[Rfam]
The record is a 67-nucleotide sequence, which matches "nadA riboswitch" in Rfam.

RNA sequence: AGUUGCAACAUCCCCGUGGGUUGGGUGCAGGUCGCAGUUGGACCGGUACAGCGAACCCACUGCAACU
Number, nucleotide and partner (000 for none) at each position: 001a067002g066003u065004u064005g063006c062007a061008a000009c000010a000011u000012c000013c053014c051015c000016g060017u059018g058019g057020g056021u055022u054023g052024g000025g049026u048027g047028c046029a000030g044031g043032u042033c000034g000035c000036a000037g000038u000039u000040g000041g000042a032043c031044c030045g000046g028047u027048a026049c025050a000051g014052c023053g013054a022055a021056c020057c019058c018059a017060c016061u007062g006063c005064a004065a003066c002067u001

The sequence is in the family's curated seed alignment. Pairs were carried over by alignment from the consensus structure, which is taken from published work.